[Rfam]
This 83-nucleotide RNA sequence belongs to the Rfam family "Group II catalytic intron D1-D4-1". The literature on the family includes a 2001 paper in Trends Genet by Bonen and Vogel, "The ins and outs of group II introns". The pairing is the family consensus, mapped onto this sequence. Its family is annotated with Group II intron splicing in the Gene Ontology. The sequence is in the family's curated seed alignment.
RNA sequence: CGCCCAACCGAGUGCCCGAGGUGUGCGGGAAGGCGGCAGUCAGCCGAGGCCAUAGUAGCUGCUUGCGCACAGCGGCGAAGGGC
Numbered sequence: 001c002g003c004c005c006a007a008c009c010g011a012g013u014g015c016c017c018g019a020g021g022u023g024u025g026c027g028g029g030a031a032g033g034c035g036g037c038a039g040u041c042a043g044c045c046g047a048g049g050c051c052a053u054a055g056u057a058g059c060u061g062c063u064u065g066c067g068c069a070c071a072g073c074g075g076c077g078a079a080g081g082g083c
Stems, first nucleotide, its partner, number of pairs: 001027002004023001009018002040047002049083003058076006